Rfam assigns this 98-nucleotide RNA from Propithecus coquereli to the family "Y RNA".
The family's consensus secondary structure is taken from published work.
Lineage of the source: Eukaryota > Metazoa > Sarcopterygii > Tetrapoda > Propithecus.
The family's RNA type in Rfam is non-coding RNA gene.
From the family's description: Y RNAs are components of the Ro ribonucleoprotein particle (Ro RNP), in association with Ro60 and La proteins.
A reference for the family is Chen et al. (2000), "Ro ribonucleoproteins contribute to the resistance of Deinococcus radiodurans to ultraviolet irradiation", Genes Dev.
The match comes from Rfam's covariance-model search (50 bits).
RNA sequence: GGCUGGUCCGAGUGUAACGGUGUUUACAACUAAUUGAUCACAAGUUACACAUUCCUUUGUUCCUUGUCCACUCCCACUACUUCACUUGCCUAGCAUUU
Numbered sequence: 001g002g003c004u005g006g007u008c009c010g011a012g013u014g015u016a017a018c019g020g021u022g023u024u025u026a027c028a029a030c031u032a033a034u035u036g037a038u039c040a041c042a043a044g045u046u047a048c049a050c051a052u053u054c055c056u057u058u059g060u061u062c063c064u065u066g067u068c069c070a071c072u073c074c075c076a077c078u079a080c081u082u083c084a085c086u087u088g089c090c091u092a093g094c095a096u097u098u
Stems, first nucleotide, its partner, number of pairs: 002094005008088001010087002014083001016078001019075002022073001028061003032057002